RNA sequence: ACACUUGCAGGACGGGGAGCGUGACAAUAUAUAUAUUUUAUAAACAUAUAUUGCACACCUCCCGGCCUAUAAGUGU
Numbered sequence: 001a002c003a004c005u006u007g008c009a010g011g012a013c014g015g016g017g018a019g020c021g022u023g024a025c026a027a028u029a030u031a032u033a034u035a036u037u038u039u040a041u042a043a044a045c046a047u048a049u050a051u052u053g054c055a056c057a058c059c060u061c062c063c064g065g066c067c068u069a070u071a072a073g074u075g076u
Base pairs, nucleotide, nucleotide: 001076002075003074004073005072006071007070010067011066013064014063016061017060021056023054025053026052027051028050029049030048031047